A member of the RNA family "SAM riboswitch aptamer (S box leader)" from Kocuria rhizophila, 87 nucleotides long.
[Rfam]
RNA sequence: UGCCCAUCCAGAGCGGCUCAGAGAUCUGGCUCGAUCACGCCGCAGCAACCGGGUCACACCCGGUGCUAAUGCCAGAACCGAUGGAAA
Numbered sequence: 001u002g003c004c005c006a007u008c009c010a011g012a013g014c015g016g017c018u019c020a021g022a023g024a025u026c027u028g029g030c031u032c033g034a035u036c037a038c039g040c041c042g043c044a045g046c047a048a049c050c051g052g053g054u055c056a057c058a059c060c061c062g063g064u065g066c067u068a069a070u071g072c073c074a075g076a077a078c079c080g081a082u083g084g085a086a087a
Base pairs, nucleotide, nucleotide: 001087004084005083006082007081008080013043014042015041016040017039021032022031023030026075027074028073029072044067045066046065047064049063050062051061052060053059054058071079

Annotation:
The base pairs follow the family's consensus structure, which is taken from published work.